Rfam assigns this 45-nucleotide RNA sequence from Ifrita kowaldi to the family "Histone 3' UTR stem-loop". The family's consensus secondary structure is taken from published work. From the family's description: The mRNAs of metazoan histone genes lack a poly-A tail. 3' end processing occurs at a site between a highly conserved stem-loop (modelled by this family) and a purine rich region around 20 nts downstream (the histone downstream element, or HDE). The stem-loop is bound by a 31 kDa stem-loop binding protein (SLBP - also termed the histone hairpin binding protein, or HBP). Together with U7 snRNA binding of the HDE, SLBP binding nucleate s the formation of the processing complex. The histone 3' UTR stem-loop is also involved in nucleocytoplasmic transport of the mRNA, and in stability regulation and translation efficiency in the cytoplasm. The organism belongs to Ifrita, within Eukaryota. It is annotated as a cis-regulatory element.
RNA sequence: CCAAAGGCUCUUUUAAGAGCCACUAAAUGCUCAAUUAAGAGUUGG
Numbered sequence: 001c002c003a004a005a006g007g008c009u010c011u012u013u014u015a016a017g018a019g020c021c022a023c024u025a026a027a028u029g030c031u032c033a034a035u036u037a038a039g040a041g042u043u044g045g
Stems, first nucleotide, its partner, number of pairs: 006021006